Record summary:
Shown here is a 72-nucleotide RNA from Schmidtea mediterranea, a member of the family "bantam microRNA precursor family". Its family is annotated with miRNA-mediated post-transcriptional gene silencing and RISC complex in the Gene Ontology. The base pairs follow the family's consensus structure, which was predicted with RNAalifold. Its Rfam clan is "mir-81 clan". The source organism's lineage runs through Eukaryota, Metazoa, Eumetazoa, Geoplanoidea and Schmidtea.
[Rfam]
RNA sequence: CUUUAAAAACCGGUUUUCGUUGAGAUCUUAGAUAUAUUCAUCUGAGAUCACUGCGAAAGCUGAUUAUGAAGU
Numbered sequence: 001c002u003u004u005a006a007a008a009a010c011c012g013g014u015u016u017u018c019g020u021u022g023a024g025a026u027c028u029u030a031g032a033u034a035u036a037u038u039c040a041u042c043u044g045a046g047a048u049c050a051c052u053g054c055g056a057a058a059g060c061u062g063a064u065u066a067u068g069a070a071g072u
Stems, first nucleotide, its partner, number of pairs: 004069001006067001008065002011062010024049005
Dot-bracket structure: ...(.(.((.((((((((((...(((((................)))))...)))))))))).)).).)...